[Rfam]
RNA: MAT2A 3'UTR stem loop F
RNA sequence: CCUGGGCAUGGCGCUGGUGGCUGGUGUGGUACAGAGAAGCCAGCUUGUUUACUUGCCUGCCCAGG
Numbered sequence: 001c002c003u004g005g006g007c008a009u010g011g012c013g014c015u016g017g018u019g020g021c022u023g024g025u026g027u028g029g030u031a032c033a034g035a036g037a038a039g040c041c042a043g044c045u046u047g048u049u050u051a052c053u054u055g056c057c058u059g060c061c062c063a064g065g
Base pairs, nucleotide, nucleotide: 001065002064003063004062005061006060007059010057011056012055019045020044021043022042023041024040025039026032027031